The record is a 70-nucleotide RNA from Geodia barretti, which matches "eL15-Euryarchaeota ribosomal protein leader" in Rfam. The organism belongs to Geodia, within Eukaryota. The match comes from Rfam's covariance-model search (35 bits). By type it is a cis-regulatory leader. The literature on the family includes a 2020 paper in BMC Microbiol by Eckert and Weinberg, "Discovery of 20 novel ribosomal leader candidates in bacteria and archaea".
RNA sequence: CGGGACAUAGCGCCAACAGCGCGUUGACGAGCGUCCCGUCGGGAUGGCCCGGUCCCGGGUGAACCGGAAG
Dot-bracket structure: (((((............................))))).(((....(((((....)))))...)))....